[Rfam]
Rfam assigns this 102-nucleotide RNA sequence from Cytobacillus kochii to the family "Purine riboswitch aptamer".
RNA sequence: AUAAUUUUAACGAAUAACCUUCAUAUAUCCUUGGUAAUAUGGUCCGAGAGUCUCUACCAGACUGCCUAUAACAGUCUGACUAUGAAGGCAGAAUAUAUUUAG
Number, nucleotide and partner (000 for none) at each position: 001a000002u000003a000004a000005u000006u000007u000008u000009a000010a000011c000012g000013a000014a000015u000016a000017a000018c088019c087020u086021u085022c084023a083024u082025a081026u000027a000028u000029c000030c048031u047032u046033g045034g044035u000036a000037a000038u000039a000040u000041g000042g000043u000044c034045c033046g032047a031048g030049a000050g000051u000052c000053u000054c000055u000056a000057c000058c078059a077060g076061a075062c074063u073064g072065c000066c000067u000068a000069u000070a000071a000072c064073a063074g062075u061076c060077u059078g058079a000080c000081u025082a024083u023084g022085a021086a020087g019088g018089c000090a000091g000092a000093a000094u000095a000096u000097a000098u000099u000100u000101a000102g000
It scores 86 bits against the family's covariance model. Its family is annotated with purine nucleobase biosynthetic process in the Gene Ontology. The base pairs follow the family's consensus structure, which is taken from published work. Lineage of the source: Bacteria > Bacillota > Bacilli > Bacillaceae > Cytobacillus.